[Rfam]
RNA sequence: UGAGUAAAUUAAAUGAUCGCGUGUGCGAAUUCCGAAAGGAUGUACAUGAGGAAAGUCCGAGCUCCAUAGGGCAGAGUGCUGGAUAACGUCCAGUGGAGGCGACUCUAAGGAAAGUGCAACAGAAAUAAACCGCCUAUCUUUUGAUAGGUAAGGAUGGAAAGGUGAGGUAAGAGCUCACCGCCCCUUUGGUGACAAAGGGGGCACAUGUAAACCCCACUCGGAGCAAAACCGAAUAGCAGAGCAUUAUGGCGGCCCGCCAUGCUCUCGGGUAGGUUGCUAGAGCUUACUGGUGACAGUAAGUCGAGAUAGAUGAUCAUUCACGACAGAACUCGGCUUAACGAUUUGCUCAUUUU
Numbered sequence: 001u002g003a004g005u006a007a008a009u010u011a012a013a014u015g016a017u018c019g020c021g022u023g024u025g026c027g028a029a030u031u032c033c034g035a036a037a038g039g040a041u042g043u044a045c046a047u048g049a050g051g052a053a054a055g056u057c058c059g060a061g062c063u064c065c066a067u068a069g070g071g072c073a074g075a076g077u078g079c080u081g082g083a084u085a086a087c088g089u090c091c092a093g094u095g096g097a098g099g100c101g102a103c104u105c106u107a108a109g110g111a112a113a114g115u116g117c118a119a120c121a122g123a124a125a126u127a128a129a130c131c132g133c134c135u136a137u138c139u140u141u142u143g144a145u146a147g148g149u150a151a152g153g154a155u156g157g158a159a160a161g162g163u164g165a166g167g168u169a170a171g172a173g174c175u176c177a178c179c180g181c182c183c184c185u186u187u188g189g190u191g192a193c194a195a196a197g198g199g200g201g202c203a204c205a206u207g208u209a210a211a212c213c214c215c216a217c218u219c220g221g222a223g224c225a226a227a228a229c230c231g232a233a234u235a236g237c238a239g240a241g242c243a244u245u246a247u248g249g250c251g252g253c254c255c256g257c258c259a260u261g262c263u264c265u266c267g268g269g270u271a272g273g274u275u276g277c278u279a280g281a282g283c284u285u286a287c288u289g290g291u292g293a294c295a296g297u298a299a300g301u302c303g304a305g306a307u308a309g310a311u312g313a314u315c316a317u318u319c320a321c322g323a324c325a326g327a328a329c330u331c332g333g334c335u336u337a338a339c340g341a342u343u344u345g346c347u348c349a350u351u352u353u
Stems, first nucleotide, its partner, number of pairs: 001349010012318007020048008053336003057333005062223004069255004074219005079093005094108001095106004109214002114212002116208003130153002132149007161179006180202001181200008227275004238265005246260005282301008
RNA: Bacterial RNase P class A
Organism: Natranaerovirga pectinivora